This 63-nucleotide sequence from Paucibacter sp. KBW04 belongs to the Rfam family "Betaproteobacteria toxic small RNA". Rfam 15.1 lists 951 matches to the family in 508 species. The family's consensus secondary structure was predicted with WAR. For this family Rfam cites "A vast collection of microbial genes that are toxic to bacteria" (Kimelman et al., Genome Res, 2012). About the family: Overexpression in amino aid rich medium attenuates growth, suggesting role in repressing amino acid intake and metabolism.
RNA sequence: UGUCUCCUCCACCGCCUCCAUGGUGGAUUCAGCCCGGACUUGCAAAAGUUCGGGCUUUUUUUC
Numbered sequence: 001u002g003u004c005u006c007c008u009c010c011a012c013c014g015c016c017u018c019c020a021u022g023g024u025g026g027a028u029u030c031a032g033c034c035c036g037g038a039c040u041u042g043c044a045a046a047a048g049u050u051c052g053g054g055c056u057u058u059u060u061u062u063c
Stems, first nucleotide, its partner, number of pairs: 008027007031056008